[Rfam]
RNA sequence: AGGCAACCCCCUAACAAAAAAAAGCAGUUGAUAAGGGAGGUGUUAUUCUGCUCGUAGAUUGAAUCUUUGGCUCUUCCGACCGGCUGGAACUAUGAUGUACGCAGGUCUAGUAACGCUGAAGUACAUA
Numbered sequence: 001a002g003g004c005a006a007c008c009c010c011c012u013a014a015c016a017a018a019a020a021a022a023a024g025c026a027g028u029u030g031a032u033a034a035g036g037g038a039g040g041u042g043u044u045a046u047u048c049u050g051c052u053c054g055u056a057g058a059u060u061g062a063a064u065c066u067u068u069g070g071c072u073c074u075u076c077c078g079a080c081c082g083g084c085u086g087g088a089a090c091u092a093u094g095a096u097g098u099a100c101g102c103a104g105g106u107c108u109a110g111u112a113a114c115g116c117u118g119a120a121g122u123a124c125a126u127a
Base pairs, nucleotide, nucleotide: 002044003043004042005041007040008039009037010036011035012034014032015030016029017028065121066120067119070116071115072113078107079106080105081104083102084101089098090097
This 127-nucleotide sequence from Chenopodium quinoa belongs to the Rfam family "Small nucleolar RNA snoR77". The match comes from Rfam's covariance-model search (63 bits). The family's RNA type in Rfam is H/ACA-box small nucleolar RNA. Pairs were carried over by alignment from the consensus structure, which was predicted with WAR. For this family Rfam cites "Experimental RNomics: identification of 140 candidates for small non-messenger RNAs in the plant Arabidopsis thaliana" (Marker et al., Curr Biol, 2002).